RNA: SAM riboswitch aptamer (S box leader)
Organism: Clostridium sp. CAG:217
RNA sequence: ACUUUAUCGAGAGUGGUCGAGGGAACAGGCCCGUGGACACCACAGCAACCUGCUUUGGUAAGGUGCUAAAACCUGCGGUUCAAAUCCGAGUGAUGAGGA
Numbered sequence: 001a002c003u004u005u006a007u008c009g010a011g012a013g014u015g016g017u018c019g020a021g022g023g024a025a026c027a028g029g030c031c032c033g034u035g036g037a038c039a040c041c042a043c044a045g046c047a048a049c050c051u052g053c054u055u056u057g058g059u060a061a062g063g064u065g066c067u068a069a070a071a072c073c074u075g076c077g078g079u080u081c082a083a084a085u086c087c088g089a090g091u092g093a094u095g096a097g098g099a
Base pairs, nucleotide, nucleotide: 002098003097004096005095006094007093008092013043014042015041016040017039021032022031023030026075027074028073029072044067045066046065047064049063050062051060052059053058071091076088077087078086080084